Rfam assigns this 398-nucleotide RNA from Pseudomonas sp. GV071 to the family "Pseudomonas sRNA CrcZ". The family's consensus secondary structure was predicted with WAR. A search with the family's covariance model found it, with a score of 337 bits.

RNA sequence: ACAACAACAAUAACAAGCAACGCCAAAGACAAUAAAAAUAAGACGUACCGACUCCAGCACAACAAAAACAAAAUCGCGGGAGGCGCAGCUAACUGAUUCUUUUGGAGAGGAAUGGCUUUUGGGGUUCGCCCCGCGACCAGGCUGAGAACAACAAAACUGCUACUAGGCAGAGCCCGAACUGGUUGGAUCGCAAGAUCAUGGCUACAUCAGCAUCCAAAGCAAUCCGUUGUCUAUUAACCUCCGAAUUGGAGGUUUUUCCUGAAGCCACUAGGCCGACGGAACGGGUCAACAAACAAAAACAACAAGCCCGACAUAAUAAUAAAAAUAAAGCACGCACCUACUUGGGGGGGAGCUUCGGCUCCCCCAGUAGCUUUCGCUACCACCCUCCGGUUACACCC
Numbered sequence: 001a002c003a004a005c006a007a008c009a010a011u012a013a014c015a016a017g018c019a020a021c022g023c024c025a026a027a028g029a030c031a032a033u034a035a036a037a038a039u040a041a042g043a044c045g046u047a048c049c050g051a052c053u054c055c056a057g058c059a060c061a062a063c064a065a066a067a068a069c070a071a072a073a074u075c076g077c078g079g080g081a082g083g084c085g086c087a088g089c090u091a092a093c094u095g096a097u098u099c100u101u102u103u104g105g106a107g108a109g110g111a112a113u114g115g116c117u118u119u120u121g122g123g124g125u126u127c128g129c130c131c132c133g134c135g136a137c138c139a140g141g142c143u144g145a146g147a148a149c150a151a152c153a154a155a156a157c158u159g160c161u162a163c164u165a166g167g168c169a170g171a172g173c174c175c176g177a178a179c180u181g182g183u184u185g186g187a188u189c190g191c192a193a194g195a196u197c198a199u200g201g202c203u204a205c206a207u208c209a210g211c212a213u214c215c216a217a218a219g220c221a222a223u224c225c226g227u228u229g230u231c232u233a234u235u236a237a238c239c240u241c242c243g244a245a246u247u248g249g250a251g252g253u254u255u256u257u258c259c260u261g262a263a264g265c266c267a268c269u270a271g272g273c274c275g276a277c278g279g280a281a282c283g284g285g286u287c288a289a290c291a292a293a294c295a296a297a298a299a300c301a302a303c304a305a306g307c308c309c310g311a312c313a314u315a316a317u318a319a320u321a322a323a324a325a326u327a328a329a330g331c332a333c334g335c336a337c338c339u340a341c342u343u344g345g346g347g348g349g350g351a352g353c354u355u356c357g358g359c360u361c362c363c364c365c366a367g368u369a370g371c372u373u374u375c376g377c378u379a380c381c382a383c384c385c386u387c388c389g390g391u392u393a394c395a396c397c398c
Stems, first nucleotide, its partner, number of pairs: 049085002052082004100219005115211002134185007157170005237253005278385002283381001284309002287306001328373004345368001346365008